Shown here is a 78-nucleotide sequence from Nicotiana tabacum, a member of the family "MIR6145 microRNA precursor family". The family's consensus secondary structure was predicted with RNAalifold.
[Rfam]
RNA sequence: GCUAGAGGUAUUGUUACAUGUAACACUGGCUUGCAUAAGGAAAUUUCGGCCAGUGUUAGUGUAACAAUCCCUUCGGCC
Numbered sequence: 001g002c003u004a005g006a007g008g009u010a011u012u013g014u015u016a017c018a019u020g021u022a023a024c025a026c027u028g029g030c031u032u033g034c035a036u037a038a039g040g041a042a043a044u045u046u047c048g049g050c051c052a053g054u055g056u057u058a059g060u061g062u063a064a065c066a067a068u069c070c071c072u073u074c075g076g077c078c
Stems, first nucleotide, its partner, number of pairs: 001077003005073004010068010022057010